[Rfam]
RNA sequence: GGAUGUGAGGGCGAUCUGGCUGCGACAUCUGUCACCCCAUUGAUCGCCAGGGUUGAUUCGGCUGAUCUGGCUGGCUAGGCGGGUGUCCCCUUCCUCCCUCGCCGCUCCAUGUGCGUCCCUCCCAAAGCUGCGCGCUUGGUCGAAGAGGACGACCAUCCCCGAUAGAGGAGGACCGGUCUUCGGUCAAGGGUAUACGAGUAGCUGCGCUCCCCUGCUAGAACCUCCAAACAAGAUGUGUGUCAUUAUACCUGGCUUAGGCCCUAGUAUUUCUUAGGAGAUGGUAGAAAUAAAGAUUUCAAUGGGGCUGUAUCUUGAAAAAUAAAAAUGAAAGUGAUGGUUUAUUUUU
Numbered sequence: 001g002g003a004u005g006u007g008a009g010g011g012c013g014a015u016c017u018g019g020c021u022g023c024g025a026c027a028u029c030u031g032u033c034a035c036c037c038c039a040u041u042g043a044u045c046g047c048c049a050g051g052g053u054u055g056a057u058u059c060g061g062c063u064g065a066u067c068u069g070g071c072u073g074g075c076u077a078g079g080c081g082g083g084u085g086u087c088c089c090c091u092u093c094c095u096c097c098c099u100c101g102c103c104g105c106u107c108c109a110u111g112u113g114c115g116u117c118c119c120u121c122c123c124a125a126a127g128c129u130g131c132g133c134g135c136u137u138g139g140u141c142g143a144a145g146a147g148g149a150c151g152a153c154c155a156u157c158c159c160c161g162a163u164a165g166a167g168g169a170g171g172a173c174c175g176g177u178c179u180u181c182g183g184u185c186a187a188g189g190g191u192a193u194a195c196g197a198g199u200a201g202c203u204g205c206g207c208u209c210c211c212c213u214g215c216u217a218g219a220a221c222c223u224c225c226a227a228a229c230a231a232g233a234u235g236u237g238u239g240u241c242a243u244u245a246u247a248c249c250u251g252g253c254u255u256a257g258g259c260c261c262u263a264g265u266a267u268u269u270c271u272u273a274g275g276a277g278a279u280g281g282u283a284g285a286a287a288u289a290a291a292g293a294u295u296u297c298a299a300u301g302g303g304g305c306u307g308u309a310u311c312u313u314g315a316a317a318a319a320u321a322a323a324a325a326u327g328a329a330a331g332u333g334a335u336g337g338u339u340u341a342u343u344u345u346u
Stems, first nucleotide, its partner, number of pairs: 001108003005102007013093002018090002024087010035074002037070003042067004046062003116171002118168004122139004127135002140162003147158003202292002208286001212284004222277004228272001232270001316346003320341004326336002
Dot-bracket structure: (((.(((((((.((...((....((((((((((.(((((..(((((((...........))).)))))))..))...)))))))))).)).))..)))))))...))).......((((((((((.((.....))))))(((....(((......))).)))..)))).))..............................((....(...((((......((((..(...(.....................................).).))))...)))).)....)).......................(((.((((..((.......)).))))..)))
RNA: 7SK RNA